[Rfam]
Rfam assigns this 174-nucleotide RNA from Peribacillus muralis to the family "Group II catalytic intron D1-D4-3". Its family is annotated with Group II intron splicing in the Gene Ontology. The base pairs follow the family's consensus structure. A search with the family's covariance model found it, with a score of 135 bits.

RNA sequence: CCCACGGUGACGUGGAAUCUGAAGGAAGCAAGCGGCAAACCUCCGGUCUGAGGAACACGAACUUCAUAUAAGGCUAGGUAUCAUUGGAUGAGUUUGCAAAACAAAACAAAGUCUAUACUGCCGAAGGUGGUACAAAGCAAAUGAAGCAGAUAGGUGGAGGGAAAGAUUGCACUC
Numbered sequence: 001c002c003c004a005c006g007g008u009g010a011c012g013u014g015g016a017a018u019c020u021g022a023a024g025g026a027a028g029c030a031a032g033c034g035g036c037a038a039a040c041c042u043c044c045g046g047u048c049u050g051a052g053g054a055a056c057a058c059g060a061a062c063u064u065c066a067u068a069u070a071a072g073g074c075u076a077g078g079u080a081u082c083a084u085u086g087g088a089u090g091a092g093u094u095u096g097c098a099a100a101a102c103a104a105a106a107c108a109a110a111g112u113c114u115a116u117a118c119u120g121c122c123g124a125a126g127g128u129g130g131u132a133c134a135a136a137g138c139a140a141a142u143g144a145a146g147c148a149g150a151u152a153g154g155u156g157g158a159g160g161g162a163a164a165g166a167u168u169g170c171a172c173u174c
Base pairs, nucleotide, nucleotide: 002015003014004013005012006011028174032170036165040160041159042158043157044156045155046151047150048149049148050147062146063145064144065143066142067141073138074137075136078133079132080131081130082129083128086114087113088112089111092107093106094105095104